[Rfam]
This 235-nucleotide RNA from Phtheirospermum japonicum belongs to the Rfam family "Plant small nucleolar RNA U3".
Small nucleolar RNAs (snoRNAs) are involved in the processing and modification of rRNA in the nucleolus. There are two main classes of snoRNAs: the box C/D class, and the box H/ACA class.
It scores 118 bits against the family's covariance model.
Its family is annotated with nucleolus and RNA processing in the Gene Ontology.
A reference for the family is Zwieb (1997), "The uRNA database", Nucleic Acids Res.
Lineage of the source: Eukaryota > Spermatophyta > Pentapetalae > Orobanchaceae > Phtheirospermum.
RNA sequence: ACGACCAAACUUGAACAGGAUCAAGUCUAUAGGUCGUACCUCUGUAUCCUUGGUUACGAAGGAGACAGGAAAAACCAUGUCUGGUGGAUGACUCAUGGUUGCUUGUCCAGGGCGUGAUUAACGGUCCCUUGGGCUCAGUCACUCUGGUCAAUUGGGCUAGUGAAGGAUCGUUCGAUCGUUCUCAGCUGGCUUGUGUUGCCAGCCUGAGAUGGCCAAGCCAACUGUCUGACAGACA
Dot-bracket structure: (((.((......((...(...)...))....))).))....((((.(((((.......))))).))))..........(((((..............((((((((.(((.((((......(((((((.((...............................)).))))))).....)))).(((((((((.......))))).))))..))).))))).))).......))))).